[Rfam]
RNA sequence: UUUCUGGGUCGGUCUGGAAGACUUGUGAUUUUGUUGUUUCCGGUGUCAGGGAAGCGAACAACAAAUCCCAGUCUCCUCACCGCCCCAGGAC
Numbered sequence: 001u002u003u004c005u006g007g008g009u010c011g012g013u014c015u016g017g018a019a020g021a022c023u024u025g026u027g028a029u030u031u032u033g034u035u036g037u038u039u040c041c042g043g044u045g046u047c048a049g050g051g052a053a054g055c056g057a058a059c060a061a062c063a064a065a066u067c068c069c070a071g072u073c074u075c076c077u078c079a080c081c082g083c084c085c086c087a088g089g090a091c
Base pairs, nucleotide, nucleotide: 002090003089004088005087006086007085008084010082011081012080013079016076017075019074020073021072022071023070025069027067028066029065030064031063033062034061035060036059037058038057

The family of this 91-nucleotide RNA sequence from Platysternon megacephalum is "mir-7 microRNA precursor family".
From the family's description: This family represents the microRNA (miRNA) precursor mir-7.
The organism belongs to Platysternon, within Eukaryota.